[Rfam]
Nucleotides: 138
Stems, first nucleotide, its partner, number of pairs: 005036004014031006068099003072095006079088001081086001100133001102131012
Number, partner (000 for none) and nucleotide at each position: 001000g002000g003000u004000a005036c006035c007034u008033u009000u010000a011000a012000a013000g014031u015030c016029a017028g018027u019026c020000c021000u022000g023000u024000g025000a026019g027018g028017c029016u030015g031014a032000c033008a034007a035006g036005g037000a038000c039000a040000g041000c042000g043000a044000g045000g046000a047000u048000u049000a050000u051000a052000u053000g054000g055000u056000u057000a058000g059000g060000c061000a062000u063000g064000u065000g066000c067000u068099u069098u070097u071000u072095u073094a074093u075092a076091u077090g078000c079088c080000c081086g082000g083000a084000u085000a086081u087000u088079g089000c090077c091076a092075u093074a094073u095072a096000u097070a098069a099068a100133g101000c102131g103130g104129g105128c106127u107126u108125c109124u110123u111122g112121u113120c114000a115000g116000a117000a118000u119000a120113g121112g122111c123110a124109a125108g126107g127106a128105g129104c130103c131102c132000u133100u134000u135000u136000u137000a138000u
This 138-nucleotide RNA sequence from Bacillus sp. V5-8f belongs to the Rfam family "PyrR binding site".
The source organism's lineage runs through Bacteria, Bacillati, Bacillota, Caryophanales and Bacillus.
The family's consensus secondary structure is taken from published work.
Rfam links the family to the GO terms pyrimidine nucleobase transport and pyrimidine nucleobase biosynthetic process.